[Rfam]
RNA: Small nucleolar RNA SNORD86
Organism: Bos grunniens
Nucleotides: 091
Stems, first nucleotide, its partner, number of pairs: 001091001003089001005087002010082001012081002019079002022076001024074002028072002030068002035065001037063003044058001048053001
Number, partner (000 for none) and nucleotide at each position: 001091a002000u003089u004000a005087a006086c007000a008000a009000u010082g011000g012081a013080u014000u015000c016000a017000a018000a019079a020078c021000a022076a023000u024074u025073a026000c027000c028072u029071u030068c031067u032000u033000u034000c035065u036000g037063a038062c039061c040000u041000a042000u043000a044058c045000u046000g047000a048053c049000c050000u051000c052000u053048g054000c055000a056000a057000u058044g059000c060000u061039g062038g063037u064000g065035a066000a067031g068030g069000c070000u071029a072028a073025u074024g075000c076022u077000g078020g079019u080013g081012u082010c083000u084000g085000a086006g087005u088000g089003a090000u091001u